The record is a 99-nucleotide sequence from Durio zibethinus, which matches "MIR477 microRNA precursor family" in Rfam. Rfam 15.1 lists 63 matches to the family in 31 species. NCBI's taxonomy places the organism under Eukaryota, Viridiplantae, eudicotyledons, Pentapetalae, Durio. The match comes from Rfam's covariance-model search (67 bits). The literature on the family includes a 2005 paper in Plant Cell by Lu et al., "Novel and mechanical stress-responsive MicroRNAs in Populus trichocarpa that are absent from Arabidopsis".
[Rfam]
RNA sequence: GAAGUUUUUAACUAUCCUCAAAGGCUUCCAAUAUUCCAAGAUAACAUCAGUUUUCAGGAUGUAGGAAUGCUGGGAACCUUUGGGGAUAACUAAAGACUU
Dot-bracket structure: ..((((.(((..(((((((.((((.(((((.((..................................)).))))).)))).)))))))..))).)))).